The family of this 89-nucleotide sequence from Olea europaea is "mir-160 microRNA precursor family". The literature on the family includes a 2002 paper in Cell by Rhoades et al., "Prediction of plant microRNA targets". Gene Ontology terms of the family: miRNA-mediated post-transcriptional gene silencing and RISC complex. It scores 51 bits against the family's covariance model. The family has 7 seed sequences and 1,502 matches in Rfam 15.1.
[Rfam]
RNA sequence: AGAUGCCUGGCUCCCUGUACGCCCCACGACAAAAUCACUCACGAUGACGGAGUGGCUGAGUCGAGUGGCAUACCAGGAGUCAAGCAUAC
Numbered sequence: 001a002g003a004u005g006c007c008u009g010g011c012u013c014c015c016u017g018u019a020c021g022c023c024c025c026a027c028g029a030c031a032a033a034a035u036c037a038c039u040c041a042c043g044a045u046g047a048c049g050g051a052g053u054g055g056c057u058g059a060g061u062c063g064a065g066u067g068g069c070a071u072a073c074c075a076g077g078a079g080u081c082a083a084g085c086a087u088a089c
Base pairs, nucleotide, nucleotide: 003087004086005085006084008082009081010080011079012078013077014076017073018072019071021069022068023067027063028062029061